Rfam assigns this 128-nucleotide RNA from Chrysemys picta to the family "Small nucleolar RNA SNORD10".
RNA sequence: GUUCGCUGAUGAUUCCCCAUGCGUGUCAGCUGAUCCCAGUGCCGCCUGGUGCCCCCUGCUAGGCGUUCUGCCAUCCGGGCCUGGCACAGGGGCUUCUGGGUGUGAUCAGAGCUCUCCCGACUGAGAAC
Numbered sequence: 001g002u003u004c005g006c007u008g009a010u011g012a013u014u015c016c017c018c019a020u021g022c023g024u025g026u027c028a029g030c031u032g033a034u035c036c037c038a039g040u041g042c043c044g045c046c047u048g049g050u051g052c053c054c055c056c057u058g059c060u061a062g063g064c065g066u067u068c069u070g071c072c073a074u075c076c077g078g079g080c081c082u083g084g085c086a087c088a089g090g091g092g093c094u095u096c097u098g099g100g101u102g103u104g105a106u107c108a109g110a111g112c113u114c115u116c117c118c119g120a121c122u123g124a125g126a127a128c
Stems, first nucleotide, its partner, number of pairs: 001128004045091003049087005

Taxonomically the source falls in Chrysemys picta (Eukaryota, Tetrapoda, Amniota, Testudines). On this family, see Huttenhofer et al., EMBO J 2001: "RNomics: an experimental approach that identifies 201 candidates for novel, small, non-messenger RNAs in mouse". Its family is annotated with RNA processing and nucleolus in the Gene Ontology.